[Rfam]
RNA: Fluoride riboswitch aptamer (crcB RNA motif)
RNA sequence: AAGUUAAAAGGUGAUGGAGUUCACCAUAACCGCAAUAUGCUAAUGACUCCUACAGGUAA
Numbered sequence: 001a002a003g004u005u006a007a008a009a010g011g012u013g014a015u016g017g018a019g020u021u022c023a024c025c026a027u028a029a030c031c032g033c034a035a036u037a038u039g040c041u042a043a044u045g046a047c048u049c050c051u052a053c054a055g056g057u058a059a
Stems, first nucleotide, its partner, number of pairs: 010025004016050006032040002